[Rfam]
RNA sequence: ACCACAUAUGAUGAUUUAAAGGGACUUAAUACUGAAACGUGAUGUGAGCUUUCAUAUUGAUUCUGAUGCUGG
Numbered sequence: 001a002c003c004a005c006a007u008a009u010g011a012u013g014a015u016u017u018a019a020a021g022g023g024a025c026u027u028a029a030u031a032c033u034g035a036a037a038c039g040u041g042a043u044g045u046g047a048g049c050u051u052u053c054a055u056a057u058u059g060a061u062u063c064u065g066a067u068g069c070u071g072g
Stems, first nucleotide, its partner, number of pairs: 002072003005068002
Dot-bracket structure: .(((((............................................................)).)))
Notes
Rfam assigns this 72-nucleotide RNA from Sinocyclocheilus grahami to the family "Small nucleolar RNA SNORD82". About the family: snoRNA U82 or Z25 is found in both humans and mice. The literature on the family includes a 2002 paper in Mol Cell Biol by Galardi et al., "Purified box C/D snoRNPs are able to reproduce site-specific 2'-O-methylation of target RNA in vitro". The family's consensus secondary structure was predicted with PFOLD. The family's RNA type in Rfam is C/D-box small nucleolar RNA.